[Rfam]
RNA sequence: GGCUGGUCCUAGUGCCUUGGUGUUUUCAGAUCAUUGAUCACAACCAGUUACAGACUUUUUUCUUCCUUCUUCACCCCCACCAUUGCUUGACUAGCCUUAA
Dot-bracket structure: ((((((((..(..(...(((.(..........(..((.....................))..)............))))....)..).))))))))....
This 100-nucleotide RNA from Piliocolobus tephrosceles belongs to the Rfam family "Y RNA".
Pairs were carried over by alignment from the consensus structure, which is taken from published work.
The literature on the family includes a 2000 paper in Nucleic Acids Res by Teunissen et al., "Conserved features of Y RNAs: a comparison of experimentally derived secondary structures".
It scores 44 bits against the family's covariance model.
Y RNAs are components of the Ro ribonucleoprotein particle (Ro RNP), in association with Ro60 and La proteins. The Y RNAs and Ro60 and La proteins are well conserved, but the function of the Ro RNP is not known. In humans the RNA component can be one of four small RNAs -- hY1, hY3, hY4 and hY5. These small RNAs are predicted to fold into a conserved secondary structure containing three stem structures. The largest of the four, hY1, contains an additional hairpin. This family includes a significant number of annotated pseudogenes and the model is expected to discriminate poorly between real and Y RNA related pseudogenes.